[Rfam]
The family of this 82-nucleotide RNA sequence from Aliidiomarina sanyensis is "Group II catalytic intron D1-D4-1". Rfam's curators write: Group II introns are found in rRNA, tRNA and mRNA of organelles in fungi, plants and protists, and also in mRNA in bacteria. The pairing is the family consensus, mapped onto this sequence. The source organism's lineage runs through Bacteria, Pseudomonadati, Pseudomonadota, Idiomarinaceae and Aliidiomarina. A search with the family's covariance model found it, with a score of 60 bits.
RNA sequence: CUACUGAUGCUAUGAGGUAUCAGGAUGGGGCAACAGAAGUCAGCCGAGGCCGUAGUAGGUUGGUCACCGCCAACUAAAGGGC
Numbered sequence: 001c002u003a004c005u006g007a008u009g010c011u012a013u014g015a016g017g018u019a020u021c022a023g024g025a026u027g028g029g030g031c032a033a034c035a036g037a038a039g040u041c042a043g044c045c046g047a048g049g050c051c052g053u054a055g056u057a058g059g060u061u062g063g064u065c066a067c068c069g070c071c072a073a074c075u076a077a078a079g080g081g082c
Stems, first nucleotide, its partner, number of pairs: 001027001004023008040047002049082003058075006